[Rfam]
RNA sequence: UAGGGGGAGGGAGGUGGCAUGGCUGGUCCUAUGGUAAUGGCUGCUCAUACUUCCAGUCAUGCUACCCUCCUCACCUUACA
Numbered sequence: 001u002a003g004g005g006g007g008a009g010g011g012a013g014g015u016g017g018c019a020u021g022g023c024u025g026g027u028c029c030u031a032u033g034g035u036a037a038u039g040g041c042u043g044c045u046c047a048u049a050c051u052u053c054c055a056g057u058c059a060u061g062c063u064a065c066c067c068u069c070c071u072c073a074c075c076u077u078a079c080a
Stems, first nucleotide, its partner, number of pairs: 001078005007072004013066008023056004030049002

Shown here is an 80-nucleotide RNA sequence from Pipistrellus kuhlii, a member of the family "mir-9186 microRNA precursor family". It scores 80 bits against the family's covariance model. Its family is annotated with RISC complex and miRNA-mediated post-transcriptional gene silencing in the Gene Ontology. Lineage of the source: Eukaryota > Metazoa > Teleostomi > Amniota > Pipistrellus.